RNA sequence: GGGGCUGACCGGUUUCGACAGCAAGGCCAGUGGGUAAGAUAGCAUGCAGAGAACCACAGCGCGAUCUCUUUAAUCCCUUGCUGUAUAUUUUAACUGGCAACCAAGAGUAUGCUCUUGCUGCGUAAUCCGAAGUUUAGUACGAUACGCGUUUUUCCCGAAGUAUAGUAAGGAAACAAGAUGUCCCCCAGAAGCUCGGUUUCGCGGCGUCUGAUUCGGGGGCAUAGGAAAUGCGAAAAUAAGUCCCAGUAGUCUUCGGACUGGGAACGAAAAUUUUAGAAGAUACGUAGUGGUUUGGGUGUCUGUCUCCGUACCACUGCCGACAACCAAUGGCAGAAUAAGCAUGUAGAAGUCUUAUGUACUGCUUGUUUGGACGAGAGUUCGAAUCUCUCCAGCUCCACAA
Numbered sequence: 001g002g003g004g005c006u007g008a009c010c011g012g013u014u015u016c017g018a019c020a021g022c023a024a025g026g027c028c029a030g031u032g033g034g035u036a037a038g039a040u041a042g043c044a045u046g047c048a049g050a051g052a053a054c055c056a057c058a059g060c061g062c063g064a065u066c067u068c069u070u071u072a073a074u075c076c077c078u079u080g081c082u083g084u085a086u087a088u089u090u091u092a093a094c095u096g097g098c099a100a101c102c103a104a105g106a107g108u109a110u111g112c113u114c115u116u117g118c119u120g121c122g123u124a125a126u127c128c129g130a131a132g133u134u135u136a137g138u139a140c141g142a143u144a145c146g147c148g149u150u151u152u153u154c155c156c157g158a159a160g161u162a163u164a165g166u167a168a169g170g171a172a173a174c175a176a177g178a179u180g181u182c183c184c185c186c187a188g189a190a191g192c193u194c195g196g197u198u199u200c201g202c203g204g205c206g207u208c209u210g211a212u213u214c215g216g217g218g219g220c221a222u223a224g225g226a227a228a229u230g231c232g233a234a235a236a237u238a239a240g241u242c243c244c245a246g247u248a249g250u251c252u253u254c255g256g257a258c259u260g261g262g263a264a265c266g267a268a269a270a271u272u273u274u275a276g277a278a279g280a281u282a283c284g285u286a287g288u289g290g291u292u293u294g295g296g297u298g299u300c301u302g303u304c305u306c307c308g309u310a311c312c313a314c315u316g317c318c319g320a321c322a323a324c325c326a327a328u329g330g331c332a333g334a335a336u337a338a339g340c341a342u343g344u345a346g347a348a349g350u351c352u353u354a355u356g357u358a359c360u361g362c363u364u365g366u367u368u369g370g371a372c373g374a375g376a377g378u379u380c381g382a383a384u385c386u387c388u389c390c391a392g393c394u395c396c397a398c399a400a
Base pairs, nucleotide, nucleotide: 001396002395003394004393005392006391007390019369020368021366022365023364024363025362030359031358032357034355035354036353037352038351039350040349043343044342045341046340047339048069049068050067051066052065056084057083058082059081060080061079149175151173152172153171154170155169179221180220181219182218183217184216186210187209188208189207191205192204193203197234198233199232200230201229241263242262243261244260245259246258247257249281250280251279252278253277254276284317285316286315287314288313289312290311291310294307295306296305299334300333301332302331303330304329373389374388375387376386377385
The family of this 400-nucleotide sequence from Planobacterium oryzisoli is "transfer-messenger RNA". Rfam classes the family as a non-coding RNA gene. Its family is annotated with RNA catabolic process in the Gene Ontology. The match comes from Rfam's covariance-model search (150 bits). Rfam describes the family as follows. Bacterial tmRNA, also known as 10Sa RNA or SsrA, is named for its dual tRNA and mRNA-like properties. Its role is to liberate the mRNA from a stalled ribosome. To accomplish this part of the tmRNA is used as a reading frame that ends in a translation stop signal. Lineage of the source: Bacteria > Bacteroidota > Flavobacteriia > Weeksellaceae > Chryseobacterium.